[Rfam]
RNA sequence: UACUACCAAAGCCUAUCUCUACCUCCACGUGGUGACUGUUGGGAGCUUUUCCUUAACGAAAAGCUGCAGACGGAGCAGG
Numbered sequence: 001u002a003c004u005a006c007c008a009a010a011g012c013c014u015a016u017c018u019c020u021a022c023c024u025c026c027a028c029g030u031g032g033u034g035a036c037u038g039u040u041g042g043g044a045g046c047u048u049u050u051c052c053u054u055a056a057c058g059a060a061a062a063g064c065u066g067c068a069g070a071c072g073g074a075g076c077a078g079g
Stems, first nucleotide, its partner, number of pairs: 012079003016075001018073002021033003044065007052058001
drz-agam-1 ribozyme: a 79-nucleotide RNA from Hermetia illucens. NCBI's taxonomy places the organism under Eukaryota, Eumetazoa, Dicondylia, Brachycera, Hermetia. A search with the family's covariance model found it, with a score of 40 bits.